The record is a 166-nucleotide RNA sequence from Tyrannus savana, which matches "Small nucleolar RNA SNORD97" in Rfam. The literature on the family includes a 2003 paper in Nucleic Acids Res by Vitali et al., "Identification of 13 novel human modification guide RNAs". Rfam classes the family as a C/D-box small nucleolar RNA. The match comes from Rfam's covariance-model search (104 bits).
RNA sequence: UUGCCCAAUGAUUAUAGCAAGACGCGUUAUUAUGAGGACUAAAGCUGGAACUCUUACUUCUUCUCCUCCUCCUCUUCCUCCUUUGUCCCUUCCUCUUUCACCUUACCCCUCUCACUUUCCUUAGGGUAUCCAGCGUCCUAUGAGCAAGACUGAGAUAUGAGGGCAA
Dot-bracket structure: ((((((............................(((..(........)..)))..........................................................................................................))))))
Pairs were carried over by alignment from the consensus structure, which was predicted with WAR.